[Rfam]
RNA sequence: UUCGAUCACUGGGGGCGCUACUUGCUGAGAGGAGGAAACUCCGACCCUUUGUACCUGAUCCGGUUAACGCCGGCGUAGGAAAGUGAAUCUAUUGAAAU
Dot-bracket structure: .....(((((((((..((.....))......(((....)))...)))).....((((..((((......))))..))))..)))))............
Shown here is a 98-nucleotide sequence from Bacillus sp. FJAT-50079, a member of the family "TPP riboswitch aptamer (THI element)". The family's consensus secondary structure is taken from published work.